[Rfam]
RNA sequence: AACGGGGAAGCCGAAAACCGAACUGAGUAGGCA
Numbered sequence: 001a002a003c004g005g006g007g008a009a010g011c012c013g014a015a016a017a018c019c020g021a022a023c024u025g026a027g028u029a030g031g032c033a
Base pairs, nucleotide, nucleotide: 003020004019005018010032011031012030
Shown here is a 33-nucleotide RNA, a member of the family "DUF805b RNA". By type it is a cis-regulatory element. Rfam's curators put it in the seed alignment.